Shown here is a 64-nucleotide RNA sequence from Mesoplasma lactucae, a member of the family "2dG-I riboswitch aptamer (M. florum)".
The base pairs follow the family's consensus structure, which is taken from published work.
Its family is annotated with deoxyribonucleoside binding and regulation of DNA-templated transcription, termination in the Gene Ontology.
On this family, see Pikovskaya et al., Nat Chem Biol 2011: "Structural principles of nucleoside selectivity in a 2'-deoxyguanosine riboswitch".
The organism belongs to Mesoplasma lactucae, within Bacteria.
The match comes from Rfam's covariance-model search (72 bits).

RNA sequence: UCUUAUAUAGGGUAGCAUAAUGGGCUACUGACUCCACCCCUAAUCCUAAUUAGGGACUAUGAGA
Numbered sequence: 001u002c003u004u005a006u007a008u009a010g011g012g013u014a015g016c017a018u019a020a021u022g023g024g025c026u027a028c029u030g031a032c033u034c035c036a037c038c039c040c041u042a043a044u045c046c047u048a049a050u051u052a053g054g055g056a057c058u059a060u061g062a063g064a
Base pairs, nucleotide, nucleotide: 001064002063003062004061005060006059007058008036011029012028013027014026015025016024022046023045030037038055039054040053041052042051043050044049